RNA: Group II catalytic intron D1-D4-3
Organism: Evansella cellulosilytica
RNA sequence: UCCACUGUGAGGUGGAAUCUGAAGGAAGCCGGACGCAAAAUCUCGAGGUAACGAACAGAAACUGGAUACAAGGCUGUCAGGAGAUGGAUGAGUUUGCAAUACAAAACGAAGUCCAACACUGCACGAAUCUCCUACAGUAAAUUCAGUACUUGCGAGAGGAAAGCGGUUAGA
Dot-bracket structure: ((((((....))))))............(.((..((....((((((((((...........((((((.....(((.(.((((((.((((..((((........))))...)))).............))))))).)))..))))))))))).))))).....))..)).).